[Rfam]
RNA sequence: UACAUUUGCAGCUUCAAUGUAAAAGCAUUGAGUACAUUAAAAUCAUUUAAACAAUAUUGGUAUG
Numbered sequence: 001u002a003c004a005u006u007u008g009c010a011g012c013u014u015c016a017a018u019g020u021a022a023a024a025g026c027a028u029u030g031a032g033u034a035c036a037u038u039a040a041a042a043u044c045a046u047u048u049a050a051a052c053a054a055u056a057u058u059g060g061u062a063u064g
Stems, first nucleotide, its partner, number of pairs: 014031006
Shown here is a 64-nucleotide RNA from Tenacibaculum aiptasiae, a member of the family "S15-Flavobacteria ribosomal protein leader".
For this family Rfam cites "Discovery of 20 novel ribosomal leader candidates in bacteria and archaea" (Eckert and Weinberg, BMC Microbiol, 2020).
The base pairs follow the family's consensus structure, which is taken from published work.
Taxonomically the source falls in Tenacibaculum (Bacteria, Pseudomonadati, Bacteroidota, Flavobacteriaceae).
The match comes from Rfam's covariance-model search (71 bits).